[Rfam]
RNA sequence: AGAGGUUGCAAGUUCAAGGCUUUAGCAGAAGUGCUUACAGUGUGGCCAUGUCAGAUUCCAAUGAAUCUGUGAAUUCUGCU
Numbered sequence: 001a002g003a004g005g006u007u008g009c010a011a012g013u014u015c016a017a018g019g020c021u022u023u024a025g026c027a028g029a030a031g032u033g034c035u036u037a038c039a040g041u042g043u044g045g046c047c048a049u050g051u052c053a054g055a056u057u058c059c060a061a062u063g064a065a066u067c068u069g070u071g072a073a074u075u076c077u078g079c080u
Base pairs, nucleotide, nucleotide: 013048018047019046020045021044024080025079026078027077028076029075030074031043032042033041052069053068054067055066056065057064058063
Mammalian CPEB3 ribozyme: an 80-nucleotide RNA from Crocodylus porosus.
Rfam 15.1 lists 5,706 matches to the family in 197 species.
Gene Ontology term of the family: RNA nuclease activity.
Lineage of the source: Eukaryota > Metazoa > Deuterostomia > Vertebrata > Crocodylus.
Rfam's curators write: The mammalian CPEB3 ribozyme is a self cleaving RNA located in the second intron of the CPEB3 gene which belongs to a family of genes regulating messenger RNA polyadenylation.